[Rfam]
RNA sequence: GGGAUAUGAUGAGUGGUCAUUGCUCGCAAUUAAAUAUGCGAGAAGGGCGUCCAGGCCCAGCCUGGUUACGACAAUUUGGGCGCUCUCAUUUUAACCAAUCUGAUCUC
Numbered sequence: 001g002g003g004a005u006a007u008g009a010u011g012a013g014u015g016g017u018c019a020u021u022g023c024u025c026g027c028a029a030u031u032a033a034a035u036a037u038g039c040g041a042g043a044a045g046g047g048c049g050u051c052c053a054g055g056c057c058c059a060g061c062c063u064g065g066u067u068a069c070g071a072c073a074a075u076u077u078g079g080g081c082g083c084u085c086u087c088a089u090u091u092u093a094a095c096c097a098a099u100c101u102g103a104u105c106u107c
Stems, first nucleotide, its partner, number of pairs: 001107004014097004023042005044086008063078002065075002